The record is a 113-nucleotide sequence from Paenibacillus sp. J2TS4, which matches "epsC RNA" in Rfam. The match comes from Rfam's covariance-model search (99 bits). The organism belongs to Paenibacillus, within Bacteria.
[Rfam]
RNA sequence: AGGUAAUGUCUCCUGCACCUAUAUUACUGGAGGCACUCGAUCAUACUGUGGGCUUGUUAGAGCCUUAGACGUUUAUCGUCAGGGGUAUGGUGUGAGGGGAGGUUAAAUGCCUU
Numbered sequence: 001a002g003g004u005a006a007u008g009u010c011u012c013c014u015g016c017a018c019c020u021a022u023a024u025u026a027c028u029g030g031a032g033g034c035a036c037u038c039g040a041u042c043a044u045a046c047u048g049u050g051g052g053c054u055u056g057u058u059a060g061a062g063c064c065u066u067a068g069a070c071g072u073u074u075a076u077c078g079u080c081a082g083g084g085g086u087a088u089g090g091u092g093u094g095a096g097g098g099g100a101g102g103u104u105a106a107a108u109g110c111c112u113u
Base pairs, nucleotide, nucleotide: 001020002019003018004017007035008034009033010032011031012030013029036096037095038094039093040091041090042089043088044087045086046085047084050065051064052063053062054061055060068080069079070078071077099113100112101111102110103109
Dot-bracket structure: [[[[..(((((((...]]]]........)))))))((((((((((((..((((((....))))))..((((.....))))...)))))))).))))..(((((.....)))))